[Rfam]
RNA sequence: AUAGUAGGUCGGUUUGUCGCUUUUCCCUUGAGGAAUGGAGGAAAGUCCGGGCAACGCAGAGAGCCAUACUUCCUAACGGGAAGCUGUUUGUGAGAGCAGAGUAGCGUAACAGAAAAUAACCGCUCCGACUUGUCGGAGUAAGGGUGAAAAGGUGAGGUAAAAGCUCACCGGGUUUGAUGGUAACAUCAGAUGCCGUACGUCUUAUGGGUUGCAAGAUCACGUAUACCGACGCAUGUAGGGUUUCUCGCCCGAUGUCGGGGGGUAGAUCGCUAAAGGCAAAUGGCGACAUUUGUUCGAGAUAAAUGACAAACACUUUGUGCAAACAAAGUACAAAACCCGGCUUACAGACCUGCUAUUUUC
Numbered sequence: 001a002u003a004g005u006a007g008g009u010c011g012g013u014u015u016g017u018c019g020c021u022u023u024u025c026c027c028u029u030g031a032g033g034a035a036u037g038g039a040g041g042a043a044a045g046u047c048c049g050g051g052c053a054a055c056g057c058a059g060a061g062a063g064c065c066a067u068a069c070u071u072c073c074u075a076a077c078g079g080g081a082a083g084c085u086g087u088u089u090g091u092g093a094g095a096g097c098a099g100a101g102u103a104g105c106g107u108a109a110c111a112g113a114a115a116a117u118a119a120c121c122g123c124u125c126c127g128a129c130u131u132g133u134c135g136g137a138g139u140a141a142g143g144g145u146g147a148a149a150a151g152g153u154g155a156g157g158u159a160a161a162a163g164c165u166c167a168c169c170g171g172g173u174u175u176g177a178u179g180g181u182a183a184c185a186u187c188a189g190a191u192g193c194c195g196u197a198c199g200u201c202u203u204a205u206g207g208g209u210u211g212c213a214a215g216a217u218c219a220c221g222u223a224u225a226c227c228g229a230c231g232c233a234u235g236u237a238g239g240g241u242u243u244c245u246c247g248c249c250c251g252a253u254g255u256c257g258g259g260g261g262g263u264a265g266a267u268c269g270c271u272a273a274a275g276g277c278a279a280a281u282g283g284c285g286a287c288a289u290u291u292g293u294u295c296g297a298g299a300u301a302a303a304u305g306a307c308a309a310a311c312a313c314u315u316u317g318u319g320c321a322a323a324c325a326a327a328g329u330a331c332a333a334a335a336c337c338c339g340g341c342u343u344a345c346a347g348a349c350c351u352g353c354u355a356u357u358u359u360c
Stems, first nucleotide, its partner, number of pairs: 001356010011345001012311007020038002023035004043343003047340005052211004059246004064207005069083005084099001086097004100202002104200005120143002122139007151169006171193001172191008215268004226258005238250004275294008
RNA: Bacterial RNase P class A
Organism: Paludibacter propionicigenes